[Rfam]
RNA sequence: ACAGACUCCGCGGGAGAGAGAGGCACUUGCCUCCGCCGAAGGCGCAAACUCCCAUAAUCGCUCAGGCAUGCUGAACCGCGGAGAGGUC
Numbered sequence: 001a002c003a004g005a006c007u008c009c010g011c012g013g014g015a016g017a018g019a020g021a022g023g024c025a026c027u028u029g030c031c032u033c034c035g036c037c038g039a040a041g042g043c044g045c046a047a048a049c050u051c052c053c054a055u056a057a058u059c060g061c062u063c064a065g066g067c068a069u070g071c072u073g074a075a076c077c078g079c080g081g082a083g084a085g086g087u088c
Stems, first nucleotide, its partner, number of pairs: 006083008020033004035067003038063002042061003048055001
RNA: Glycine riboswitch aptamer
Organism: Teichococcus oryzae